This 184-nucleotide RNA from Prochlorococcus marinus belongs to the Rfam family "6S / SsrS RNA". The sequence is in the family's curated seed alignment. The base pairs follow the family's consensus structure, which is taken from published work. The source organism's lineage runs through Bacteria, Bacillati, Cyanobacteriota, Synechococcales and Prochlorococcus marinus. E. coli 6S RNA was the first non coding RNA to be sequenced, but its function was unknown until recently.
RNA sequence: CUUGAACUGCUGUGUUGGUGACGGCCUUUUUCUAGUGCUCUGAUCUGACUCUCUUUCGAUUUGGGGAGGCUGUCGUGAAGGUGACGUAGACCGGACUUGCUUCCGGAAACGAAGCCCCACUUUGCUUCCCCUUCUGGUUCUUCCAGGUCGAACACUGGGGCUCGCACGGCAUGGCGGUUCACCU
Numbered sequence: 001c002u003u004g005a006a007c008u009g010c011u012g013u014g015u016u017g018g019u020g021a022c023g024g025c026c027u028u029u030u031u032c033u034a035g036u037g038c039u040c041u042g043a044u045c046u047g048a049c050u051c052u053c054u055u056u057c058g059a060u061u062u063g064g065g066g067a068g069g070c071u072g073u074c075g076u077g078a079a080g081g082u083g084a085c086g087u088a089g090a091c092c093g094g095a096c097u098u099g100c101u102u103c104c105g106g107a108a109a110c111g112a113a114g115c116c117c118c119a120c121u122u123u124g125c126u127u128c129c130c131c132u133u134c135u136g137g138u139u140c141u142u143c144c145a146g147g148u149c150g151a152a153c154a155c156u157g158g159g160g161c162u163c164g165c166a167c168g169g170c171a172u173g174g175c176g177g178u179u180c181a182c183c184u
Base pairs, nucleotide, nucleotide: 003181004180005179006178007177008176009175010174011173012172013171014170015169018167019166036154037153041150042149043148044147045146046145063131064130065129067127068126069125070124072122075120076119077118080115086110087109091106092105093104094103095102